[Rfam]
RNA sequence: ACCUUUGUGCAGUGGCAGUAUCACAGCCAAUAAGGUUUAUCUGAGGCAUAAUUAUUGGUAACUGAAUACUUUUCCCAAGCCUCCGCCCUGAUGACUUGAAAUAUAGUCCGCAUUGGCAAUUUUUGACAGUCUCUAUGGAGA
Numbered sequence: 001a002c003c004u005u006u007g008u009g010c011a012g013u014g015g016c017a018g019u020a021u022c023a024c025a026g027c028c029a030a031u032a033a034g035g036u037u038u039a040u041c042u043g044a045g046g047c048a049u050a051a052u053u054a055u056u057g058g059u060a061a062c063u064g065a066a067u068a069c070u071u072u073u074c075c076c077a078a079g080c081c082u083c084c085g086c087c088c089u090g091a092u093g094a095c096u097u098g099a100a101a102u103a104u105a106g107u108c109c110g111c112a113u114u115g116g117c118a119a120u121u122u123u124u125g126a127c128a129g130u131c132u133c134u135a136u137g138g139a140g141a
Stems, first nucleotide, its partner, number of pairs: 020052002023049001026047003034042002085117003089112002093108004130141004
RNA: U4 spliceosomal RNA